Shown here is a 79-nucleotide RNA from Hermetia illucens, a member of the family "drz-agam-1 ribozyme". Rfam 15.1 lists 10,507 matches to the family in 53 species. On this family, see Webb et al., Science 2009: "Widespread occurrence of self-cleaving ribozymes".
RNA sequence: UCCUCCCAAAACCCUAUCUCCACCUCCACGUUGUGACCGCUGGGAGUUUUUCUUAAUGGAAAAUUGCAGAAGGGGAAGG
Numbered sequence: 001u002c003c004u005c006c007c008a009a010a011a012c013c014c015u016a017u018c019u020c021c022a023c024c025u026c027c028a029c030g031u032u033g034u035g036a037c038c039g040c041u042g043g044g045a046g047u048u049u050u051u052c053u054u055a056a057u058g059g060a061a062a063a064u065u066g067c068a069g070a071a072g073g074g075g076a077a078g079g
Stems, first nucleotide, its partner, number of pairs: 013079003017075004022034002045065003049062005